[Rfam]
Nucleotides: 336
Base pairs, nucleotide, nucleotide: 002183003182004181005180009175010174011173012172013171014170015169018095019094020093021092022091023090024089025088026087027086028084029083030082032080033079034078045076046075047074048073049072052059053058099163100162101161102160103159109156110155111154112153117126118125141150142149143148186199187197188196189195200222201221202220203219204218205217225326226325231283232282233281234280235279236278237263238262240258241257242256243255244254245253264273265272288312289311290310293307294306295305296304314323315322316321
Number, partner (000 for none) and nucleotide at each position: 001000g002183a003182c004181u005180c006000u007000a008000g009175u010174u011173u012172g013171a014170c015169u016000u017000u018095g019094u020093g021092a022091a023090a024089c025088g026087a027086c028084u029083u030082g031000a032080a033079g034078g035000g036000u037000g038000u039000a040000g041000c042000a043000u044000a045076a046075g047074u048073g049072g050000g051000a052059g053058u054000g055000a056000a057000a058053a059052c060000g061000u062000c063000c064000g065000u066000g067000a068000a069000a070000u071000a072049c073048c074047a075046c076045u077000a078034c079033c080032u081000c082030c083029a084028a085000u086027g087026u088025c089024g090023u091022u092021u093020u094019a095018c096000u097000u098000a099163u100162u101161u102160c103159g104000u105000g106000a107000c108000g109156u110155u111154a112153a113000g114000a115000c116000u117126u118125g119000c120000u121000u122000c123000u124000g125118c126117a127000a128000g129000g130000u131000u132000u133000u134000g135000c136000u137000u138000u139000a140000a141150g142149g143148c144000u145000u146000c147000g148143g149142c150141u151000g152000a153112u154111u155110a156109a157000g158000g159103c160102g161101a162100a163099a164000g165000a166000c167000a168000u169015a170014g171013u172012c173011a174010g175009a176000u177000g178000g179000a180005g181004a182003g183002u184000u185000u186199g187197g188196c189195u190000g191000g192000g193000g194000c195189g196188g197187u198000a199186c200222a201221u202220c203219u204218g205217u206000u207000a208000a209000a210000c211000a212000a213000c214000a215000a216000c217205g218204c219203a220202g221201g222200u223000g224000u225326c226325c227000u228000a229000a230000g231283g232282c233281a234280a235279g236278c237263u238262c239000a240258a241257u242256g243255a244254g245253a246000a247000c248000a249000g250000a251000a252000a253245u254244c255243u256242c257241a258240u259000g260000u261000u262238g263237a264273c265272c266000a267000a268000a269000a270000g271000g272265g273264g274000a275000a276000a277000a278236g279235c280234u281233u282232g283231c284000u285000u286000g287000a288312u289311u290310u291000u292000g293307a294306u295305u296304u297000c298000c299000a300000g301000u302000a303000c304296g305295a306294a307293u308000a309000c310290a311289a312288a313000c314323u315322g316321c317000g318000a319000a320000a321316g322315c323314a324000u325226g326225g327000c328000c329000u330000a331000u332000c333000g334000a335000u336000c

This 336-nucleotide part of an RNA from Ascogregarina taiwanensis belongs to the Rfam family "Eukaryotic large subunit ribosomal RNA". The source organism's lineage runs through Eukaryota, Alveolata, Apicomplexa, Conoidasida and Ascogregarina.